A member of the RNA family "SAM (S-adenosyl methionine) riboswitch aptamer" from Beutenbergia cavernae, 112 nucleotides long. A search with the family's covariance model found it, with a score of 97 bits. SAM-IV is a mRNA element that regulates gene expression via direct sensing of S-adenosylmethionine (SAM or AdoMet). SAM-IV riboswitches share conserved nucleotide positions with the previously described SAM-I riboswitches sequence analysis and molecular recognition experiments suggest that SAM-I and SAM-IV riboswitches share similar ligand binding sites, but have different scaffolds. Lineage of the source: Bacteria > Bacillati > Beutenbergiaceae > Beutenbergia > Beutenbergia cavernae. Clan: SAM clan.
RNA sequence: GGUCUCGAGUACCAGCAUCAAGCCCCGGCUCGCUGGUCGGCAACCCUCCUGUGCGGUGGGGUGCCCCGGGUGACGACCUGGGCCUGGCUACCUGUCAGGUCAAGCGCAUCGC
Numbered sequence: 001g002g003u004c005u006c007g008a009g010u011a012c013c014a015g016c017a018u019c020a021a022g023c024c025c026c027g028g029c030u031c032g033c034u035g036g037u038c039g040g041c042a043a044c045c046c047u048c049c050u051g052u053g054c055g056g057u058g059g060g061g062u063g064c065c066c067c068g069g070g071u072g073a074c075g076a077c078c079u080g081g082g083c084c085u086g087g088c089u090a091c092c093u094g095u096c097a098g099g100u101c102a103a104g105c106g107c108a109u110c111g112c
Base pairs, nucleotide, nucleotide: 001078002077003076004075009038011037012036013035014034015033016032021030022029039065040064041063044061045060046059048056049055081101082100083099084098085097086096087095088094